[Rfam]
RNA: U1 spliceosomal RNA
RNA sequence: AUACUUACCUGGCAGAGGAGAUACCAUGAUCAUGAUAGGUGGUUUUUUUUCCCAAGGGGGAAGAUUAUGUACUGUGCUCCGGAUAUGCUGACCCCUGCUAUUUUCCCAAAUGUAGGAAACUUAACUGCAUAAUUUGUGGUAGUGGGGGACUGUGUUUGUUCUUUCCCCAG
Numbered sequence: 001a002u003a004c005u006u007a008c009c010u011g012g013c014a015g016a017g018g019a020g021a022u023a024c025c026a027u028g029a030u031c032a033u034g035a036u037a038g039g040u041g042g043u044u045u046u047u048u049u050u051c052c053c054a055a056g057g058g059g060g061a062a063g064a065u066u067a068u069g070u071a072c073u074g075u076g077c078u079c080c081g082g083a084u085a086u087g088c089u090g091a092c093c094c095c096u097g098c099u100a101u102u103u104u105c106c107c108a109a110a111u112g113u114a115g116g117a118a119a120c121u122u123a124a125c126u127g128c129a130u131a132a133u134u135u136g137u138g139g140u141a142g143u144g145g146g147g148g149a150c151u152g153u154g155u156u157u158g159u160u161c162u163u164u165c166c167c168c169a170g
Stems, first nucleotide, its partner, number of pairs: 012128004017052005023043005054096001056095003060092001062089002066085003070081001100121001101119003105115001143169005149164001152161001154159001